[Rfam]
RNA sequence: ACCUCUAAGGAUGAACAGAAAAUACUUUCGUUCUUCCGAGAUGUCCCAUGCAGAAAUUUUUUGGAGACCUGAACUGAAGAGGA
Numbered sequence: 001a002c003c004u005c006u007a008a009g010g011a012u013g014a015a016c017a018g019a020a021a022a023u024a025c026u027u028u029c030g031u032u033c034u035u036c037c038g039a040g041a042u043g044u045c046c047c048a049u050g051c052a053g054a055a056a057u058u059u060u061u062u063g064g065a066g067a068c069c070u071g072a073a074c075u076g077a078a079g080a081g082g083a
Base pairs, nucleotide, nucleotide: 003081004080005079006078

The record is an 83-nucleotide RNA from Carpinus fangiana, which matches "Small nucleolar RNA Z159/U59" in Rfam. It scores 52 bits against the family's covariance model. Rfam classes the family as a C/D-box small nucleolar RNA. The base pairs follow the family's consensus structure, which was predicted with PFOLD. The organism belongs to Carpinus, within Eukaryota.